This 581-nucleotide part of an RNA from Candidatus Methanohalarchaeum thermophilum belongs to the Rfam family "Archaeal small subunit ribosomal RNA". Rfam links the family to the GO terms structural constituent of ribosome and ribosome. It scores 1578 bits against the family's covariance model. Clan: SSU clan.
RNA sequence: UGGCGGGGGAGCACCACAACGGGUGGAGCCUGCGGUUUAAUUGGAUCCAACGCCGGGAAUCUUACCGGGGGCGACAGCUGAAUGAAGGCCAGUCUGAAGGGCUUGCCGGACUAGCUGAGAGGAGGUGCAUGGCCGCCGUCAGCUCGUACUGUGAAGCGUCCUGUUAAGUCAGGCAACGAGCGAGACCCGCACUCCCAGUUGCCAGCAGAUCCAUUUUAUGGAUGCUGGGUACACUGGGAGGACAGCCCCCGCUAAGGGGGAGGAAGGUGCGGGCGACGGUAGGUCAGUAUGCCCCGAAUCCCUCGGGCUACACGCGGGCUACAAUGGCCGGGACAAAGGGUACCAACCCCGAGAGGGGAAGGUAAUCCCCGAAACCCGGUCUUAGUUCGGAUCGAGGGCUGAAACUUGCCCUCGUGAAGCUGGAAUCCGUAGUAAUCGCGCCUCAAAAAUGGCGCGGUGAAUAUGUCCCUGCUCCUUGCACACACCGCCCGUCAAACCACCCGAGUGAGGUUUGAGUGAAGCGAUGGCAUUAAGCCACCGUUGAACUCAAGCUUCGCAAGGGGGGUUAAGUCGUAACAAGG
Numbered sequence: 001u002g003g004c005g006g007g008g009g010a011g012c013a014c015c016a017c018a019a020c021g022g023g024u025g026g027a028g029c030c031u032g033c034g035g036u037u038u039a040a041u042u043g044g045a046u047c048c049a050a051c052g053c054c055g056g057g058a059a060u061c062u063u064a065c066c067g068g069g070g071g072c073g074a075c076a077g078c079u080g081a082a083u084g085a086a087g088g089c090c091a092g093u094c095u096g097a098a099g100g101g102c103u104u105g106c107c108g109g110a111c112u113a114g115c116u117g118a119g120a121g122g123a124g125g126u127g128c129a130u131g132g133c134c135g136c137c138g139u140c141a142g143c144u145c146g147u148a149c150u151g152u153g154a155a156g157c158g159u160c161c162u163g164u165u166a167a168g169u170c171a172g173g174c175a176a177c178g179a180g181c182g183a184g185a186c187c188c189g190c191a192c193u194c195c196c197a198g199u200u201g202c203c204a205g206c207a208g209a210u211c212c213a214u215u216u217u218a219u220g221g222a223u224g225c226u227g228g229g230u231a232c233a234c235u236g237g238g239a240g241g242a243c244a245g246c247c248c249c250c251g252c253u254a255a256g257g258g259g260g261a262g263g264a265a266g267g268u269g270c271g272g273g274c275g276a277c278g279g280u281a282g283g284u285c286a287g288u289a290u291g292c293c294c295c296g297a298a299u300c301c302c303u304c305g306g307g308c309u310a311c312a313c314g315c316g317g318g319c320u321a322c323a324a325u326g327g328c329c330g331g332g333a334c335a336a337a338g339g340g341u342a343c344c345a346a347c348c349c350c351g352a353g354a355g356g357g358g359a360a361g362g363u364a365a366u367c368c369c370c371g372a373a374a375c376c377c378g379g380u381c382u383u384a385g386u387u388c389g390g391a392u393c394g395a396g397g398g399c400u401g402a403a404a405c406u407u408g409c410c411c412u413c414g415u416g417a418a419g420c421u422g423g424a425a426u427c428c429g430u431a432g433u434a435a436u437c438g439c440g441c442c443u444c445a446a447a448a449a450u451g452g453c454g455c456g457g458u459g460a461a462u463a464u465g466u467c468c469c470u471g472c473u474c475c476u477u478g479c480a481c482a483c484a485c486c487g488c489c490c491g492u493c494a495a496a497c498c499a500c501c502c503g504a505g506u507g508a509g510g511u512u513u514g515a516g517u518g519a520a521g522c523g524a525u526g527g528c529a530u531u532a533a534g535c536c537a538c539c540g541u542u543g544a545a546c547u548c549a550a551g552c553u554u555c556g557c558a559a560g561g562g563g564g565g566u567u568a569a570g571u572c573g574u575a576a577c578a579a580g581g
Base pairs, nucleotide, nucleotide: 001482002481003479004478005477007476008475009474010473011472012471013470016466017465020429021428022427023426024425025322027320028319029318030317031316032315033314034313035311036310041056042055043054044053065306066305067304068303069302070301071300075117076116077115078114080111087107088106089105091103092102093101121295122294124293125292126291127290130289131288132284133283134282135280136279137278138277142181143180144179145178146177147176149156150155160173161172162171163170187272188271189270190269192240193239194238195237196236197235198234202229203228206227207226208225209223210222211221212220213219214218243263246260247259248258249257250256326381327380328379329378330377331376332375338369339368340367343362344361347358348357349356350355388419393414394413395412396411397410398409399408435458436457437456438455439454440453441452442451485580487577490573491572493570495567496566497565498564500562501561502560505557506556507555508554509553510552511551512550513549514548515547516546517545520542521541522540523539525537526536527535528534